[Rfam]
RNA sequence: CUGACAGAAGAGAGUGAGCACACAAAGGCAAUUUGCAUAUGUUUAUGUCCAGCCGAUCUCACUGCAUUUGCUUCUCUUGCGUGCUCACUGCUCUUUCUGUCAG
Numbered sequence: 001c002u003g004a005c006a007g008a009a010g011a012g013a014g015u016g017a018g019c020a021c022a023c024a025a026a027g028g029c030a031a032u033u034u035g036c037a038u039a040u041g042u043u044u045a046u047g048u049c050c051a052g053c054c055g056a057u058c059u060c061a062c063u064g065c066a067u068u069u070g071c072u073u074c075u076c077u078u079g080c081g082u083g084c085u086c087a088c089u090g091c092u093c094u095u096u097c098u099g100u101c102a103g
Base pairs, nucleotide, nucleotide: 001103002102003101004100005099006098007097008096009095010093011092012091013089014088015087016086017085018084019083020082021081023079024078025077
A member of the RNA family "mir-156 microRNA precursor family" from Microthlaspi erraticum, 103 nucleotides long. This family represents the plant microRNA (miRNA) precursor mir-156. For this family Rfam cites "MicroRNAs in plants" (Reinhart et al., Genes Dev, 2002).